[Rfam]
RNA: mir-57 microRNA precursor family
Organism: Caenorhabditis japonica
RNA sequence: CGAACAUCGUCUACCCUGUAGAUCGAGCUGUGUGUGUGCUAUUUCGAAAUGAUAGAACACACGCUAGACUUCAGGGUGAACGAGAUGGAUU
Numbered sequence: 001c002g003a004a005c006a007u008c009g010u011c012u013a014c015c016c017u018g019u020a021g022a023u024c025g026a027g028c029u030g031u032g033u034g035u036g037u038g039c040u041a042u043u044u045c046g047a048a049a050u051g052a053u054a055g056a057a058c059a060c061a062c063g064c065u066a067g068a069c070u071u072c073a074g075g076g077u078g079a080a081c082g083a084g085a086u087g088g089a090u091u
Stems, first nucleotide, its partner, number of pairs: 012078004018072001020070002023068002026065003031061005